The family of this 87-nucleotide sequence from Stegastes partitus is "mir-7 microRNA precursor family".

RNA sequence: AGUCCACGGCAGCGUGGAAGACUAGUGAUUUUGUUGUUUUGUGCUCAAACCGACAACAGGUCGCUGUCUCCCUCUCUGCUCUGGGAC
Numbered sequence: 001a002g003u004c005c006a007c008g009g010c011a012g013c014g015u016g017g018a019a020g021a022c023u024a025g026u027g028a029u030u031u032u033g034u035u036g037u038u039u040u041g042u043g044c045u046c047a048a049a050c051c052g053a054c055a056a057c058a059g060g061u062c063g064c065u066g067u068c069u070c071c072c073u074c075u076c077u078g079c080u081c082u083g084g085g086a087c
Base pairs, nucleotide, nucleotide: 003085004084005083006082008080010078011077012076014074016072017071019069020068021067022066025064026063027062028061029060030059031058033057034056035055036054037053038052
Notes:
The literature on the family includes a 2001 paper in Science by Lagos-Quintana et al., "Identification of novel genes coding for small expressed RNAs". Rfam 15.1 lists 2,589 matches to the family in 797 species. This family represents the microRNA (miRNA) precursor mir-7. The source organism's lineage runs through Eukaryota, Deuterostomia, Euteleostomi, Clupeocephala and Stegastes.